[Rfam]
RNA sequence: UAAAAAAUAACCCUGCAGUAAACUUCUGCAGGGCUCCUUCAAACUCUUCGUGAGUGAAGGCAAAGGGAGAGGAGAAACCGGAGGAAGAACUUAUGGGGAAACGUAAGUCUUCUCCGCGG
Number, nucleotide and partner (000 for none) at each position: 001u000002a000003a000004a000005a000006a000007a000008u000009a000010a000011c033012c032013c031014u030015g029016c028017a027018g026019u000020a000021a000022a000023c000024u000025u000026c018027u017028g016029c015030a014031g013032g012033g011034c067035u066036c065037c000038u063039u000040c000041a000042a000043a055044c054045u053046c052047u000048u000049c000050g000051u000052g046053a045054g044055u043056g000057a000058a000059g000060g000061c000062a000063a038064a000065g036066g035067g034068a000069g000070a000071g000072g000073a000074g000075a000076a000077a000078c000079c116080g115081g114082a113083g000084g112085a111086a110087g109088a000089a108090c107091u106092u105093a104094u000095g000096g000097g000098g000099a000100a000101a000102c000103g000104u093105a092106a091107g090108u089109c087110u086111u085112c084113u082114c081115c080116g079117c000118g000119g000
Background:
A member of the RNA family "ylbH leader" from Caldibacillus thermoamylovorans, 119 nucleotides long. The pairing is the family consensus, mapped onto this sequence. Its family is annotated with regulation of gene expression in the Gene Ontology. The family's RNA type in Rfam is cis-regulatory leader. A reference for the family is Barrick et al. (2004), "New RNA motifs suggest an expanded scope for riboswitches in bacterial genetic control", Proc Natl Acad Sci U S A. The match comes from Rfam's covariance-model search (103 bits). Rfam's curators write: This family is a putative regulatory RNA structure that is found upstream of the ylbH gene in B. subtilis and related low GC Gram-positive bacteria.